[Rfam]
Overview: A member of the RNA family "transfer-messenger RNA" from Pseudomonas fulva, 392 nucleotides long. For this family Rfam cites "Phylogenetic analysis of tmRNA secondary structure" (Williams and Bartel, RNA, 1996). Bacterial tmRNA, also known as 10Sa RNA or SsrA, is named for its dual tRNA and mRNA-like properties.
RNA sequence: GGGGCCGAUUAGGAUUCGACGCCGGUGGCGAAGCUCGAGGUGCAUGCCGACUUGGUAACAGAAGUCGUAAAUCCACUGUUGCAACUUUCUAUAGUUGCCAAUGACGAAAACUACGAGGGCUACGCUCUCGCUGCGUAAGCGGCGCGACUAGUCCUUCUGGUAGCUUCGGCUCCAGCGAUCACUAGGGGAUGCCUGUAAACCCGAAGUGAUUGUCAUGCAGAACAGGAUCGCCGCGUAGUACGUUGUGGACGAAGUGGCUAAAACUUACACAACUCGCCCAAUGCACCCUGCCCGUCGGGCGGCUGAGGGUUAACUCAAUAGACACGGCUAAGCAUGUAGUACCGACAGUGGAGAACUGGCGGACGGGGGUUCAAAUCCCCCCGGCUCCACCA
Dot-bracket structure: (((((((............(((((((......(((...(((.((((([[[[[..((((((..]]]]].........))))))...........................................((.((((((....)))))).))............................((((((((.(((....[[[[[...)))..)))))))).........]]]]]...(((((.(.....[[[[[.....).)))))..........]]]]]..((((...((.(((.[[[.[[[)))..))...))))..........]]]..]]]...)))))....)))...))).....)))))))...(((((.......))))))))))))....
Numbered sequence: 001g002g003g004g005c006c007g008a009u010u011a012g013g014a015u016u017c018g019a020c021g022c023c024g025g026u027g028g029c030g031a032a033g034c035u036c037g038a039g040g041u042g043c044a045u046g047c048c049g050a051c052u053u054g055g056u057a058a059c060a061g062a063a064g065u066c067g068u069a070a071a072u073c074c075a076c077u078g079u080u081g082c083a084a085c086u087u088u089c090u091a092u093a094g095u096u097g098c099c100a101a102u103g104a105c106g107a108a109a110a111c112u113a114c115g116a117g118g119g120c121u122a123c124g125c126u127c128u129c130g131c132u133g134c135g136u137a138a139g140c141g142g143c144g145c146g147a148c149u150a151g152u153c154c155u156u157c158u159g160g161u162a163g164c165u166u167c168g169g170c171u172c173c174a175g176c177g178a179u180c181a182c183u184a185g186g187g188g189a190u191g192c193c194u195g196u197a198a199a200c201c202c203g204a205a206g207u208g209a210u211u212g213u214c215a216u217g218c219a220g221a222a223c224a225g226g227a228u229c230g231c232c233g234c235g236u237a238g239u240a241c242g243u244u245g246u247g248g249a250c251g252a253a254g255u256g257g258c259u260a261a262a263a264c265u266u267a268c269a270c271a272a273c274u275c276g277c278c279c280a281a282u283g284c285a286c287c288c289u290g291c292c293c294g295u296c297g298g299g300c301g302g303c304u305g306a307g308g309g310u311u312a313a314c315u316c317a318a319u320a321g322a323c324a325c326g327g328c329u330a331a332g333c334a335u336g337u338a339g340u341a342c343c344g345a346c347a348g349u350g351g352a353g354a355a356c357u358g359g360c361g362g363a364c365g366g367g368g369g370u371u372c373a374a375a376u377c378c379c380c381c382c383g384g385c386u387c388c389a390c391c392a
Stems, first nucleotide, its partner, number of pairs: 001388007020361007033349003039343003043336005048067005055082006126147002129144006176212008185202003192226005230258005236252001242273005276310004283303002286299003290328003294323003365381005
The match comes from Rfam's covariance-model search (194 bits).